Annotation: This 69-nucleotide RNA sequence belongs to the Rfam family "HDV ribozyme from F. prausnitzii". Gene Ontology term of the family: catalytic activity. A reference for the family is Webb et al. (2009), "Widespread occurrence of self-cleaving ribozymes", Science. The base pairs follow the family's consensus structure, which is taken from published work.

RNA sequence: GCUGCUCAGAUGUGCUGCCUCUUCGUGGCGAGCAGCAGGCAACGAGAUCCUGUCUCGGCUAAAGCAUGA
Numbered sequence: 001g002c003u004g005c006u007c008a009g010a011u012g013u014g015c016u017g018c019c020u021c022u023u024c025g026u027g028g029c030g031a032g033c034a035g036c037a038g039g040c041a042a043c044g045a046g047a048u049c050c051u052g053u054c055u056c057g058g059c060u061a062a063a064g065c066a067u068g069a
Stems, first nucleotide, its partner, number of pairs: 001036007017029003043057005